[Rfam]
RNA sequence: UAACUUUUUUCCUAGUUAAACUUUUUAAAUUUUGAUCAAGUUCAUAGAAAAAUAUAGCAACAUUUUCAACACAAAAUAAACAUAUUAUCAAAAUAUACUCGAUGUUACAUUUAAUGAAACUAACUUGGUGUUGGAGAUGUUGCUAAUUUUUUCUAUAAAUUUAGUCAAACCUAAAGAAGUUUGACUAGGAAAAAAGUCUA
Numbered sequence: 001u002a003a004c005u006u007u008u009u010u011c012c013u014a015g016u017u018a019a020a021c022u023u024u025u026u027a028a029a030u031u032u033u034g035a036u037c038a039a040g041u042u043c044a045u046a047g048a049a050a051a052a053u054a055u056a057g058c059a060a061c062a063u064u065u066u067c068a069a070c071a072c073a074a075a076a077u078a079a080a081c082a083u084a085u086u087a088u089c090a091a092a093a094u095a096u097a098c099u100c101g102a103u104g105u106u107a108c109a110u111u112u113a114a115u116g117a118a119a120c121u122a123a124c125u126u127g128g129u130g131u132u133g134g135a136g137a138u139g140u141u142g143c144u145a146a147u148u149u150u151u152u153c154u155a156u157a158a159a160u161u162u163a164g165u166c167a168a169a170c171c172u173a174a175a176g177a178a179g180u181u182u183g184a185c186u187a188g189g190a191a192a193a194a195a196g197u198c199u200a
Stems, first nucleotide, its partner, number of pairs: 005195005011189016031169005045155008055145003059141010072128001074126002077123001